Shown here is a 103-nucleotide RNA sequence from Neobittarella massiliensis, a member of the family "Purine riboswitch aptamer". The family has 133 seed sequences and 4,097 matches in Rfam 15.1. A search with the family's covariance model found it, with a score of 60 bits. Gene Ontology term of the family: purine nucleobase biosynthetic process. The family's consensus secondary structure is taken from published work.
[Rfam]
RNA sequence: GCGUGUAAGAUUCAUAUGGCCCAUAUAAGUCUGCGAAUAGGGCGCAGAAGUCUCUACGCGGUGACCGCAAAUCACCUGCGCUAUGGGCACCUUUGCGGGGGCG
Dot-bracket structure: ..................(((((((....((((((.......)))))).........(((((((.......))))).))..)))))))...............